[Rfam]
RNA sequence: GCGAGGCUGCGUCGCGCGUCAGGAGCCACAUAUCCCCGGGGCCUUAUCGAUCCUCACGGGAACUGUCCCUGGCCAGGUCCGUGGACCUGGCUACAUGGUGCCCACCUACUUUCGUAGGUGCUCCGGGAUCGAGUGCUUCAACGGCCACCGCGGCUUCGCA
Numbered sequence: 001g002c003g004a005g006g007c008u009g010c011g012u013c014g015c016g017c018g019u020c021a022g023g024a025g026c027c028a029c030a031u032a033u034c035c036c037c038g039g040g041g042c043c044u045u046a047u048c049g050a051u052c053c054u055c056a057c058g059g060g061a062a063c064u065g066u067c068c069c070u071g072g073c074c075a076g077g078u079c080c081g082u083g084g085a086c087c088u089g090g091c092u093a094c095a096u097g098g099u100g101c102c103c104a105c106c107u108a109c110u111u112u113c114g115u116a117g118g119u120g121c122u123c124c125g126g127g128a129u130c131g132a133g134u135g136c137u138u139c140a141a142c143g144g145c146c147a148c149c150g151c152g153g154c155u156u157c158g159c160a
Base pairs, nucleotide, nucleotide: 002158003157004156005155006154007153008152009151010150011149012147014145015144017143018142019141033128034127035126036125038123039122040121041119042118043117058103059102060101062099063098064097065096066095071092072091073090074089075088076087077086